This 188-nucleotide RNA from Listeria monocytogenes belongs to the Rfam family "Listeria sRNA rli28". The family's RNA type in Rfam is small RNA. It is one of the family's seed sequences. The family has 21 seed sequences and 345 matches in Rfam 15.1.
[Rfam]
RNA sequence: AAUAUUAUGUUAUAAUAUAAAGGCAGUAGCAAAGUGAGAAAGAUGGUGGCUAAAUCCUCAUUAGGGGGUGAUGCCUAUGCUUGAAUGUAUAGUUUUACUCCUGGAAAGGAGCUAGACUUGUCUGUGUUUGAAGCACUUACGCUGAUGAUCGCUUUUGCGACAUUAGUCGUGCUGAUACUAGGCUUUGA
Numbered sequence: 001a002a003u004a005u006u007a008u009g010u011u012a013u014a015a016u017a018u019a020a021a022g023g024c025a026g027u028a029g030c031a032a033a034g035u036g037a038g039a040a041a042g043a044u045g046g047u048g049g050c051u052a053a054a055u056c057c058u059c060a061u062u063a064g065g066g067g068g069u070g071a072u073g074c075c076u077a078u079g080c081u082u083g084a085a086u087g088u089a090u091a092g093u094u095u096u097a098c099u100c101c102u103g104g105a106a107a108g109g110a111g112c113u114a115g116a117c118u119u120g121u122c123u124g125u126g127u128u129u130g131a132a133g134c135a136c137u138u139a140c141g142c143u144g145a146u147g148a149u150c151g152c153u154u155u156u157g158c159g160a161c162a163u164u165a166g167u168c169g170u171g172c173u174g175a176u177a178c179u180a181g182g183c184u185u186u187g188a
Base pairs, nucleotide, nucleotide: 046161047160049158050157064102065101066100067099068098069097070096071095073093074092120140121139124136125135126134127133166183167182168181171178
Dot-bracket structure: .............................................((.((.............((((((((.((.................)).)))))))).................((..((((.....))))..))................)).))....(((..(......)..))).....